[Rfam]
RNA sequence: UCCCAGUGAAGAAACAGACAUCUUACCUCCUGUCCUAGUCCCAGAGCCUGUAAAGGCAAACCCACUGGGGCUGGCUGGGGGCGAAGAGGAAAGCUUGUUCCAGAAGGAACUGUCUGAGGGAU
Dot-bracket structure: ((((.................................................................................................................)))).

The family of this 122-nucleotide RNA from Physeter macrocephalus is "Small nucleolar RNA SNORD22". It is annotated as a C/D-box small nucleolar RNA. For this family Rfam cites "A mammalian gene with introns instead of exons generating stable RNA products" (Tycowski et al., Nature, 1996). The family's consensus secondary structure was predicted with PFOLD. It scores 141 bits against the family's covariance model.